[Rfam]
RNA sequence: GAACGAGUAAAUCUCAUCCUAAUCUGGUAGCACACAACAACCAGGAAGUGCUACCGAUUUGGCUUGGGAUUGACUUGUGG
Numbered sequence: 001g002a003a004c005g006a007g008u009a010a011a012u013c014u015c016a017u018c019c020u021a022a023u024c025u026g027g028u029a030g031c032a033c034a035c036a037a038c039a040a041c042c043a044g045g046a047a048g049u050g051c052u053a054c055c056g057a058u059u060u061g062g063c064u065u066g067g068g069a070u071u072g073a074c075u076u077g078u079g080g
Base pairs, nucleotide, nucleotide: 003078004077005076006075007074008073010071011070012069013068014067015066016065018062019061021059022058023057024056026055027054028053030051031050
Rfam assigns this 80-nucleotide RNA sequence from Caenorhabditis latens to the family "mir-259 microRNA precursor family". Rfam 15.1 lists 8 matches to the family in 8 species. The organism belongs to Caenorhabditis, within Eukaryota. Pairs were carried over by alignment from the consensus structure, which was predicted with RNAalifold.